[Rfam]
Nucleotides: 067
Stems, first nucleotide, its partner, number of pairs: 001067005016051010031039003
Number, partner (000 for none) and nucleotide at each position: 001067g002066g003065g004064u005063c006000a007000c008000u009000a010000c011000a012000u013000g014000a015000u016051u017050u018049g019048c020047u021046c022045u023044g024043g025042u026000u027000a028000a029000a030000c031039c032038c033037u034000c035000c036000c037033a038032g039031g040000c041000a042025g043024u044023c045022a046021g047020a048019g049018u050017g051016g052000u053000g054000a055000u056000g057000a058000u059000c060000u061000u062000g063005g064004a065003c066002c067001c
The record is a 67-nucleotide RNA from Canis lupus, which matches "Selenocysteine insertion sequence 1" in Rfam. The base pairs follow the family's consensus structure, which is taken from published work. Rfam links the family to the GO term selenocysteine incorporation. It scores 35 bits against the family's covariance model.